[Rfam]
RNA sequence: UGUUACCUUCGGGUGACCACCAAUGUUUCAGCAGUCUGUGAGAAACGCCUUCGGGUGACUGCAAAGAAAUCUCCCUCAGCCUGAAAGGGAGAGCAUAUCGAAUGUGGUACAUCUGCACACCUUUGGAAGCAGAUAUCGUCAAUACAAGCGCAC
Number, nucleotide and partner (000 for none) at each position: 001u000002g017003u016004u015005a014006c013007c012008u000009u000010c000011g000012g007013g006014u005015g004016a003017c002018c000019a000020c000021c000022a000023a000024u000025g046026u045027u044028u043029c042030a000031g062032c061033a060034g059035u058036c057037u000038g000039u000040g000041a000042g029043a028044a027045a026046c025047g056048c055049c054050u000051u000052c000053g000054g049055g048056u047057g036058a035059c034060u033061g032062c031063a000064a000065a000066g000067a000068a000069a000070u092071c091072u090073c089074c088075c000076u000077c000078a000079g108080c107081c106082u000083g000084a000085a000086a000087g000088g074089g073090a072091g071092a070093g105094c104095a103096u000097a000098u000099c000100g000101a000102a000103u095104g094105u093106g081107g080108u079109a000110c000111a000112u133113c132114u131115g130116c129117a000118c150119a000120c148121c000122u147123u146124u000125g000126g000127a000128a000129g116130c115131a114132g113133a112134u144135a143136u142137c000138g000139u000140c000141a000142a136143u135144a134145c000146a123147a122148g120149c000150g118151c000152a000153c000
The family of this 153-nucleotide sequence from Erwinia tracheiphila is "STAXI RNA". Rfam 15.1 lists 130 matches to the family in 68 species. Taxonomically the source falls in Erwinia (Bacteria, Gammaproteobacteria, Enterobacterales, Erwiniaceae). It scores 90 bits against the family's covariance model. The family's consensus secondary structure is taken from published work.